[Rfam]
RNA sequence: CCCGCAGACCGCCUUAUCGCUUUCGCCUUGGCGAAGGAGGAAAGUCCGGACACCAAAGAGUAGCAUAACGGGUAACUCCCGUCCGUUCGCUUCGGCGAAUGAGGACCAGUGCAACAGAAAGUAUGUACAGUUCGGCUGUAGUGAAACCAGGUAAACUCUAUGCGGUGCAAUGCCAUGUAUAUCAACGCUCCGUUUCGGCGGAUAAGAGCUACUCGUUCGAUGUUGAAGGGUAGGCAGCUAGAUCAAGUCAGUAAUGGCUUGGCAAGAUAAAUGAUAAGGGUUCGUUUCGGCGAAUACAGAAUCCGGCUUAUAGGUCUGCUUUUUUU
Numbered sequence: 001c002c003c004g005c006a007g008a009c010c011g012c013c014u015u016a017u018c019g020c021u022u023u024c025g026c027c028u029u030g031g032c033g034a035a036g037g038a039g040g041a042a043a044g045u046c047c048g049g050a051c052a053c054c055a056a057a058g059a060g061u062a063g064c065a066u067a068a069c070g071g072g073u074a075a076c077u078c079c080c081g082u083c084c085g086u087u088c089g090c091u092u093c094g095g096c097g098a099a100u101g102a103g104g105a106c107c108a109g110u111g112c113a114a115c116a117g118a119a120a121g122u123a124u125g126u127a128c129a130g131u132u133c134g135g136c137u138g139u140a141g142u143g144a145a146a147c148c149a150g151g152u153a154a155a156c157u158c159u160a161u162g163c164g165g166u167g168c169a170a171u172g173c174c175a176u177g178u179a180u181a182u183c184a185a186c187g188c189u190c191c192g193u194u195u196c197g198g199c200g201g202a203u204a205a206g207a208g209c210u211a212c213u214c215g216u217u218c219g220a221u222g223u224u225g226a227a228g229g230g231u232a233g234g235c236a237g238c239u240a241g242a243u244c245a246a247g248u249c250a251g252u253a254a255u256g257g258c259u260u261g262g263c264a265a266g267a268u269a270a271a272u273g274a275u276a277a278g279g280g281u282u283c284g285u286u287u288c289g290g291c292g293a294a295u296a297c298a299g300a301a302u303c304c305g306g307c308u309u310a311u312a313g314g315u316c317u318g319c320u321u322u323u324u325u326u
Stems, first nucleotide, its partner, number of pairs: 004319007011311001012279007020037007042309003046306005051167004058214004063163005068082005083103001084101007104158002109156002111152002126140006171236004182226005206218004243262008

This 326-nucleotide sequence from Flavobacterium orientale belongs to the Rfam family "Bacterial RNase P class A". Taxonomically the source falls in Flavobacterium (Bacteria, Bacteroidota, Flavobacteriia, Flavobacteriaceae). From the family's description: Ribonuclease P (RNase P) is a ubiquitous endoribonuclease, found in archaea, bacteria and eukarya as well as chloroplasts and mitochondria.